[Rfam]
RNA sequence: GAGACACCCUUGUGGGGCAAGUCUUGCUUCAGUAGGGUUUUGGUGCUCACUGAGUCUACCCCCUGAGGGUGUCUCU
Numbered sequence: 001g002a003g004a005c006a007c008c009c010u011u012g013u014g015g016g017g018c019a020a021g022u023c024u025u026g027c028u029u030c031a032g033u034a035g036g037g038u039u040u041u042g043g044u045g046c047u048c049a050c051u052g053a054g055u056c057u058a059c060c061c062c063c064u065g066a067g068g069g070u071g072u073c074u075c076u
Stems, first nucleotide, its partner, number of pairs: 001075007009067004014062004019057001021056001023054001029053005035047002037044002
mir-9229 microRNA precursor family: a 76-nucleotide RNA sequence from Myotis davidii.